The record is a 110-nucleotide sequence from Coffea arabica, which matches "mir-395 microRNA precursor family" in Rfam. From the family's description: mir-395 was identified in both Arabidopsis thaliana and Oryza sativa computationally and was later experimentally verified. mir-395 is thought to target mRNAs coding for ATP sulphurylases. The mature sequence is excised from the 3' arm of the hairpin. Its family is annotated with RISC complex and miRNA-mediated post-transcriptional gene silencing in the Gene Ontology. The family's consensus secondary structure was predicted with PFOLD. NCBI's taxonomy places the organism under Eukaryota, Viridiplantae, Gunneridae, Coffeeae, Coffea. For this family Rfam cites "Computational Identification of Plant MicroRNAs and Their Targets, Including a Stress-Induced miRNA" (Jones-Rhoades and Bartel, Mol Cell, 2004). A search with the family's covariance model found it, with a score of 76 bits.
RNA sequence: AUGCUCUCUAGAGUUCCCUCGAAACACUUCAAUGGGGACAAUUAUUUUCUGCCUCAGUUAGGCCAAAGAAUUCAGCCUAGUGAAGUGUUUGGGGGAACUCCUGAGUUCAU
Numbered sequence: 001a002u003g004c005u006c007u008c009u010a011g012a013g014u015u016c017c018c019u020c021g022a023a024a025c026a027c028u029u030c031a032a033u034g035g036g037g038a039c040a041a042u043u044a045u046u047u048u049c050u051g052c053c054u055c056a057g058u059u060a061g062g063c064c065a066a067a068g069a070a071u072u073c074a075g076c077c078u079a080g081u082g083a084a085g086u087g088u089u090u091g092g093g094g095g096a097a098c099u100c101c102u103g104a105g106u107u108c109a110u
Stems, first nucleotide, its partner, number of pairs: 006105003011100010022090010033079004